[Rfam]
RNA sequence: UUGCCCUCUUAAGGCUGAUGGUGCUUUAAGUGGCCAAUACAGAGGGGUAAAGUAAAUUCUCUCUUAAACCCAGAGGUGAGGGUGAAACUUUUCUCUGGAUCCUGUCGGGAGAAACAAAA
Numbered sequence: 001u002u003g004c005c006c007u008c009u010u011a012a013g014g015c016u017g018a019u020g021g022u023g024c025u026u027u028a029a030g031u032g033g034c035c036a037a038u039a040c041a042g043a044g045g046g047g048u049a050a051a052g053u054a055a056a057u058u059c060u061c062u063c064u065u066a067a068a069c070c071c072a073g074a075g076g077u078g079a080g081g082g083u084g085a086a087a088c089u090u091u092u093c094u095c096u097g098g099a100u101c102c103u104g105u106c107g108g109g110a111g112a113a114a115c116a117a118a119a
Base pairs, nucleotide, nucleotide: 002049003048004047005046006045007044009042010041014038016036017035019030057113059111060110061109062108063107070098071097072096073095074094075093076092078090079089080088